[Rfam]
Nucleotides: 120
Stems, first nucleotide, its partner, number of pairs: 003060005019047004025040002028037001076108003081103002
Number, partner (000 for none) and nucleotide at each position: 001000a002000u003060c004059c005058u006057c007056u008000a009000g010000u011000u012000c013000u014000c015000u016000u017000u018000c019047c020046c021045a022044u023000g024000a025040g026039a027000a028037c029000u030000g031000a032000a033000c034000a035000c036000u037028g038000g039026u040025c041000u042000g043000g044022g045021u046020g047019g048000u049000g050000g051000u052000a053000a054000a055000a056007a057006g058005a059004g060003g061000a062000a063000a064000a065000g066000u067000a068000a069000c070000a071000u072000u073000g074000a075000a076108c077107u078106g079000a080000c081103c082102u083000c084000a085000g086000u087000g088000c089000u090000u091000u092000u093000g094000u095000a096000a097000c098000a099000u100000a101000u102082a103081g104000a105000c106078u107077a108076g109000u110000u111000u112000c113000a114000a115000a116000c117000a118000a119000a120000u
A member of the RNA family "Small nucleolar RNA SNORA61" from Chrysochloris asiatica, 120 nucleotides long. Pairs were carried over by alignment from the consensus structure, which was predicted with PFOLD. ACA61 is a member of the H/ACA class of snoRNA that guide the sites of modification of uridines to pseudouridines. The source organism's lineage runs through Eukaryota, Gnathostomata, Afrotheria, Chrysochloridae and Chrysochloris. Rfam links the family to the GO terms RNA processing and nucleolus.